Eukaryotic large subunit ribosomal RNA: a 395-nucleotide part of an RNA from Coccidioides immitis.
Pairs were carried over by alignment from the consensus structure, which is taken from published work.
The source organism's lineage runs through Eukaryota, Opisthokonta, Eurotiomycetes, Onygenaceae and Coccidioides immitis.
RNA sequence: GAAGGUCGCCGCAACGGUAAUUCAAUUUAGUACGAGAGGAACCGUUGAUUCAGAUAAUUGGUUUUUGCGGCUGUCUGACCAGGCAGUGCCGCGAAGCUACCAUCUGCCGGAUUAUGGCUGAACGCCUCUAAGUCAGAAUCCGUACCGGAACGCGGCGAUGUUGCCCCGCACGUUGUAGUUGGAUACGAAUAGGCCUACGGGCCCUGAACCUCAGCAGGUCGGCGACGGCUCCCGGGAAGAGACUCUCGGGCGCCAGCUGACGGAUUGCAAUGUCACCACGCGCGGGGAUAGAUCCUCUGCAGACGACUGAAAUGACCAAGCGGGUCGUGUAAGCGGUCAAGUAGCCUAGUUGUUACGAGUCGCUGAGCGUCAGCCCGAUCCUUGGCUCGAUUUGU
Number, nucleotide and partner (000 for none) at each position: 001g000002a000003a000004g000005g159006u158007c157008g156009c155010c154011g153012c152013a000014a000015c147016g146017g145018u144019a000020a050021u000022u048023c047024a046025a045026u044027u000028u000029a000030g000031u000032a000033c000034g000035a000036g000037a000038g000039g000040a000041a000042c000043c000044g026045u025046u024047g023048a022049u000050u020051c106052a105053g104054a103055u102056a000057a000058u000059u099060g098061g097062u000063u000064u000065u000066u093067g092068c091069g090070g089071c086072u085073g084074u083075c082076u081077g000078a000079c000080c000081a076082g075083g074084c073085a072086g071087u000088g000089c070090c069091g068092c067093g066094a000095a000096g000097c061098u060099a059100c000101c000102a055103u054104c053105u052106g051107c000108c142109g141110g140111a000112u000113u000114a000115u135116g134117g133118c132119u131120g000121a000122a000123c000124g000125c000126c000127u000128c000129u000130a000131a119132g118133u117134c116135a115136g000137a000138a000139u000140c110141c109142g108143u000144a018145c017146c016147g015148g000149a000150a000151c000152g012153c011154g010155g009156c008157g007158a006159u005160g000161u000162u000163g000164c000165c286166c285167c284168g283169c282170a000171c280172g000173u000174u000175g000176u000177a000178g000179u000180u000181g000182g000183a000184u000185a000186c000187g000188a000189a000190u000191a000192g000193g000194c000195c000196u000197a000198c000199g000200g000201g000202c000203c000204c000205u000206g000207a000208a000209c000210c000211u000212c000213a000214g000215c000216a000217g000218g000219u000220c000221g000222g000223c000224g000225a000226c000227g000228g000229c000230u000231c000232c000233c000234g000235g000236g000237a000238a000239g000240a000241g000242a000243c000244u000245c000246u000247c000248g000249g000250g000251c000252g000253c000254c000255a000256g000257c000258u000259g000260a000261c000262g000263g000264a000265u000266u000267g000268c000269a000270a000271u000272g000273u000274c000275a000276c000277c000278a000279c000280g171281c000282g169283c168284g167285g166286g165287g000288a000289u000290a393291g392292a391293u390294c389295c000296u310297c309298u000299g307300c000301a000302g000303a000304c000305g000306a000307c299308u000309g297310a296311a000312a000313u000314g000315a000316c385317c384318a383319a382320g381321c000322g376323g375324g374325u000326c369327g368328u000329g000330u000331a000332a000333g363334c362335g361336g360337u000338c359339a000340a000341g356342u355343a354344g353345c352346c000347u000348a000349g000350u000351u000352g345353u344354u343355a342356c341357g000358a000359g338360u336361c335362g334363c333364u000365g000366a000367g000368c327369g326370u000371c000372a000373g000374c324375c323376c322377g000378a000379u000380c000381c320382u319383u318384g317385g316386c000387u000388c000389g294390a293391u292392u291393u290394g000395u000